Overview: Shown here is a 171-nucleotide RNA from Nocardiopsis gilva, a member of the family "M-box riboswitch aptamer (ykoK leader)". The base pairs follow the family's consensus structure. M-box riboswitch, also know as ykoK leader is described as a metaloregulatory RNA that sense divalent metals and function as a genetic control element of genes related to divalent metal transport in bacteria. It was first reported upstream of the B.subtilis ykoK gene and genes with related functions in other bacteria. Lineage of the source: Bacteria > Bacillati > Streptosporangiales > Nocardiopsis > Nocardiopsis gilva. A reference for the family is Barrick et al. (2004), "New RNA motifs suggest an expanded scope for riboswitches in bacterial genetic control", Proc Natl Acad Sci U S A.
[Rfam]
RNA sequence: GCAGUACCUCGUUCGGUGAGGCUCCUGCGCGAACACAGGCCACUGGUCCGCCGGUGUCGAGAGACACCGCUGGGCUAGGACAGGCCUCCCCGGCUUAAGGGGUGGCCCGAAGUGGCUUCCGGGCAUCUGGACACGUCGCGCAGUGCCAAAGCUCUGACGUGGAGGUCUUCU
Numbered sequence: 001g002c003a004g005u006a007c008c009u010c011g012u013u014c015g016g017u018g019a020g021g022c023u024c025c026u027g028c029g030c031g032a033a034c035a036c037a038g039g040c041c042a043c044u045g046g047u048c049c050g051c052c053g054g055u056g057u058c059g060a061g062a063g064a065c066a067c068c069g070c071u072g073g074g075c076u077a078g079g080a081c082a083g084g085c086c087u088c089c090c091c092g093g094c095u096u097a098a099g100g101g102g103u104g105g106c107c108c109g110a111a112g113u114g115g116c117u118u119c120c121g122g123g124c125a126u127c128u129g130g131a132c133a134c135g136u137c138g139c140g141c142a143g144u145g146c147c148a149a150a151g152c153u154c155u156g157a158c159g160u161g162g163a164g165g166u167c168u169u170c171u
Stems, first nucleotide, its partner, number of pairs: 006166005011158002013098001015153003020147003025143008039116005045076005055066004083107004089101003118131003
Dot-bracket structure: .....((((((([.(((..(((..((((((((......(((((.(((((.....((((....)))).....)))))......((((..(((......])))..))))....))))).(((........)))....)))))))).)))...)))...))...))))).....